Glycine riboswitch aptamer: a 97-nucleotide sequence from Caulobacter sp. 17J65-9.
Clan: Glycine riboswitch clan.
Lineage of the source: Bacteria > Pseudomonadati > Pseudomonadota > Caulobacteraceae > Caulobacter.
The match comes from Rfam's covariance-model search (61 bits).
RNA sequence: CCGACUCCCGCGGGAGAGUUCGGCCGUCUUCGGAGGGUCGACGCCGAAGGCGCAACCGCCCCGGAAACGCUCAGGCCCAAAGGACCGCGGGGGCCGG
Numbered sequence: 001c002c003g004a005c006u007c008c009c010g011c012g013g014g015a016g017a018g019u020u021c022g023g024c025c026g027u028c029u030u031c032g033g034a035g036g037g038u039c040g041a042c043g044c045c046g047a048a049g050g051c052g053c054a055a056c057c058g059c060c061c062c063g064g065a066a067a068c069g070c071u072c073a074g075g076c077c078c079a080a081a082g083g084a085c086c087g088c089g090g091g092g093g094c095c096g097g
Stems, first nucleotide, its partner, number of pairs: 006092008020041006043076003046072002050070003056064002